[Rfam]
RNA sequence: CUAGCUGUCACCGCAAGGUCACUGUCGGCUACGACAGUCAGUCUUCUGCGGCCCGCUCUGCGGGUCGCACCCGGCAACGCCGGAAUUUGCCAACCAGCCGGUGCGCGCAUCGGC
Numbered sequence: 001c002u003a004g005c006u007g008u009c010a011c012c013g014c015a016a017g018g019u020c021a022c023u024g025u026c027g028g029c030u031a032c033g034a035c036a037g038u039c040a041g042u043c044u045u046c047u048g049c050g051g052c053c054c055g056c057u058c059u060g061c062g063g064g065u066c067g068c069a070c071c072c073g074g075c076a077a078c079g080c081c082g083g084a085a086u087u088u089g090c091c092a093a094c095c096a097g098c099c100g101g102u103g104c105g106c107g108c109a110u111c112g113g114c
Stems, first nucleotide, its partner, number of pairs: 010019003021038006047069009071083004097114006